The family of this 99-nucleotide RNA sequence from Sulfurimicrobium lacus is "Bacterial small signal recognition particle RNA".

RNA sequence: GGCGGGCCUCCCCGCAUUGCAAGGUAGUGAACCUGGUCAGGGGCGGAAGCCAGCAGCCACAGCUAUUUAUUGCAAGUGCCGGGGGUCAGGCUCGCCACC
Numbered sequence: 001g002g003c004g005g006g007c008c009u010c011c012c013c014g015c016a017u018u019g020c021a022a023g024g025u026a027g028u029g030a031a032c033c034u035g036g037u038c039a040g041g042g043g044c045g046g047a048a049g050c051c052a053g054c055a056g057c058c059a060c061a062g063c064u065a066u067u068u069a070u071u072g073c074a075a076g077u078g079c080c081g082g083g084g085g086u087c088a089g090g091c092u093c094g095c096c097a098c099c
Base pairs, nucleotide, nucleotide: 004093005092006091007090008089009085010084011083012082013081014080015076017075018074019073020072021071022070023067024066025065026064027063028062034059035058036057037056042051043050044049

Its family is annotated with signal recognition particle, plasma membrane targeting and SRP-dependent cotranslational protein targeting to membrane, signal sequence recognition in the Gene Ontology.
Rfam describes the family as follows. The signal recognition particle (SRP) is a universally conserved ribonucleoprotein involved in the co-translational targeting of proteins to membranes.